Rfam assigns this 93-nucleotide RNA sequence from Nyctereutes procyonoides to the family "mir-8799 microRNA precursor family". NCBI's taxonomy places the organism under Eukaryota, Metazoa, Bilateria, Chordata, Nyctereutes. Its family is annotated with RISC complex and miRNA-mediated post-transcriptional gene silencing in the Gene Ontology. A search with the family's covariance model found it, with a score of 68 bits. Pairs were carried over by alignment from the consensus structure, which was predicted with RNAalifold.

[Rfam]
RNA sequence: AAGAGGAGUGCUGGAUCCUGGGCUGUGUCCCCCGGUGCCCUGGGCCCCAGGGCCUGUGCCGCUGGAAUCGCGCUCCGGGGCCCGCAGCCCCCU
Numbered sequence: 001a002a003g004a005g006g007a008g009u010g011c012u013g014g015a016u017c018c019u020g021g022g023c024u025g026u027g028u029c030c031c032c033c034g035g036u037g038c039c040c041u042g043g044g045c046c047c048c049a050g051g052g053c054c055u056g057u058g059c060c061g062c063u064g065g066a067a068u069c070g071c072g073c074u075c076c077g078g079g080g081c082c083c084g085c086a087g088c089c090c091c092c093u
Base pairs, nucleotide, nucleotide: 001093003091005089006088010085011084013082014081017079018078020076021075022074024072025071026070027069028066029065032064033061034060035059036058037057038056042054044053045052046051